[Rfam]
RNA sequence: ACGCCGUCCCGAGCGGCGUUCGUGGCCUCGAACGGGCCGUGAGCGGGGGGUGGUGCCGUGUCGGCGCAGCACCACCCCCUACCU
Numbered sequence: 001a002c003g004c005c006g007u008c009c010c011g012a013g014c015g016g017c018g019u020u021c022g023u024g025g026c027c028u029c030g031a032a033c034g035g036g037c038c039g040u041g042a043g044c045g046g047g048g049g050g051u052g053g054u055g056c057c058g059u060g061u062c063g064g065c066g067c068a069g070c071a072c073c074a075c076c077c078c079c080u081a082c083c084u
Stems, first nucleotide, its partner, number of pairs: 001019007020042009045080012058067003

Streptomyces RNA 6106: an 84-nucleotide sequence from Streptomyces sp.
About the family: Identified by deep sequencing of transcriptome at the end of exponential growth phase. Appears smaller on northern blot than sequencing transcript.
Pairs were carried over by alignment from the consensus structure.
It scores 89 bits against the family's covariance model.